[Rfam]
RNA sequence: ACUGCCCCUAGAAGCAUUGCAGCGUGGCCACCCUGCCACAGCUGUGUCAUUAGAGGGCAAAGAGAAGAGGGGCUAUGUCUAGGCUCAGGGGUCUGACGUGAACCACCUGACUGACUGCUAGCCCCACAGU
Numbered sequence: 001a002c003u004g005c006c007c008c009u010a011g012a013a014g015c016a017u018u019g020c021a022g023c024g025u026g027g028c029c030a031c032c033c034u035g036c037c038a039c040a041g042c043u044g045u046g047u048c049a050u051u052a053g054a055g056g057g058c059a060a061a062g063a064g065a066a067g068a069g070g071g072g073c074u075a076u077g078u079c080u081a082g083g084c085u086c087a088g089g090g091g092u093c094u095g096a097c098g099u100g101a102a103c104c105a106c107c108u109g110a111c112u113g114a115c116u117g118c119u120a121g122c123c124c125c126a127c128a129g130u
Base pairs, nucleotide, nucleotide: 003059004058005057006056008053009052010051011050014047015046019045020044021043022042024039025038026037027036028035067127069125070124071123072122073121074120075119083112085110086109087108088107090104091103092102
Small nucleolar RNA SNORA17: a 130-nucleotide sequence from Echinops telfairi. Its family is annotated with RNA processing and nucleolus in the Gene Ontology. It is annotated as an H/ACA-box small nucleolar RNA. Taxonomically the source falls in Echinops (Eukaryota, Gnathostomata, Teleostomi, Afrotheria). snoRNA ACA 17 belongs to the H/ACA family of snoRNAs and is predicted to guide pseudouridylation of the 28S rRNA at positions U4659 and U4598. It shares the same host gene together with ACA43. NB This family has a high threshold value to exclude a large number of closely related sequences that do not appear to have conserved H and ACA boxes, and may be pseudogenes. Clan: SNORA17 clan. The sequence is in the family's curated seed alignment.